Shown here is a 61-nucleotide sequence from Pristionchus pacificus, a member of the family "mir-8364 microRNA precursor family". The match comes from Rfam's covariance-model search (70 bits). Lineage of the source: Eukaryota > Opisthokonta > Eumetazoa > Bilateria > Pristionchus.

[Rfam]
RNA sequence: UCCUCAUUUCGCGUGCUCUCUCGUCACUCUGACCGGUGAGAGAGUACGCGGAAUGAGGAGA
Numbered sequence: 001u002c003c004u005c006a007u008u009u010c011g012c013g014u015g016c017u018c019u020c021u022c023g024u025c026a027c028u029c030u031g032a033c034c035g036g037u038g039a040g041a042g043a044g045u046a047c048g049c050g051g052a053a054u055g056a057g058g059a060g061a
Stems, first nucleotide, its partner, number of pairs: 001059007010050001012048006019041004